[Rfam]
RNA: U11 spliceosomal RNA
RNA sequence: UUAAGGGUUUUCCCCAGGGGGAAAAAAAAUUUUUUGGGGGGGGGGGGGAAAAAAUUUUUCUUUUUUUUUAAAAAAAAAUUUUUUUGGGGGGAAAAAUUUUUUUAAAAAAGGGGGGGGGGGGGAAAAUUCCCCCCCCCCCCCC
Number, nucleotide and partner (000 for none) at each position: 001u000002u000003a000004a000005g000006g000007g000008u092009u091010u090011u089012c088013c038014c037015c036016a035017g034018g033019g032020g031021g030022a000023a000024a000025a000026a000027a000028a000029a000030u021031u020032u019033u018034u017035u016036g015037g014038g013039g067040g066041g065042g064043g063044g062045g061046g060047g059048g058049a057050a056051a000052a000053a000054a000055u000056u050057u049058u048059u047060c046061u045062u044063u043064u042065u041066u040067u039068u087069u086070a085071a084072a083073a082074a081075a000076a000077a000078a000079u000080u000081u074082u073083u072084u071085u070086g069087g068088g012089g011090g010091g009092a008093a000094a000095a000096a000097u000098u000099u000100u000101u000102u000103u000104a000105a000106a000107a000108a000109a000110g140111g139112g138113g137114g000115g136116g135117g134118g133119g132120g000121g131122g130123a000124a128125a000126a000127u000128u124129c000130c122131c121132c119133c118134c117135c116136c115137c113138c112139c111140c110141c000142c000